Shown here is a 79-nucleotide RNA from Podarcis lilfordi, a member of the family "Small nucleolar RNA SNORD34". Rfam describes the family as follows. snoRNA U34 is found in intron 5 of the ribosomal protein L13a gene in humans. By type it is a C/D-box small nucleolar RNA.
[Rfam]
RNA sequence: UUCUGUCAGUGAUGUUUCUCUUAUACCUACAUUGUUUGACUUGAAGAGUGAGAAAAAAAUUCCAAACGCUGAGGCAGAU
Numbered sequence: 001u002u003c004u005g006u007c008a009g010u011g012a013u014g015u016u017u018c019u020c021u022u023a024u025a026c027c028u029a030c031a032u033u034g035u036u037u038g039a040c041u042u043g044a045a046g047a048g049u050g051a052g053a054a055a056a057a058a059a060u061u062c063c064a065a066a067c068g069c070u071g072a073g074g075c076a077g078a079u
Base pairs, nucleotide, nucleotide: 002078004076005075006074007073